[Rfam]
RNA: UnaL2 LINE 3' element
RNA sequence: UCCACGCAUUACUGUAAAUCGCUUUGAAUGAAAGCGUCUGCUAAAUGGCAUAUU
Numbered sequence: 001u002c003c004a005c006g007c008a009u010u011a012c013u014g015u016a017a018a019u020c021g022c023u024u025u026g027a028a029u030g031a032a033a034g035c036g037u038c039u040g041c042u043a044a045a046u047g048g049c050a051u052a053u054u
Base pairs, nucleotide, nucleotide: 013043014041015040016039020036021035022034023033024032025031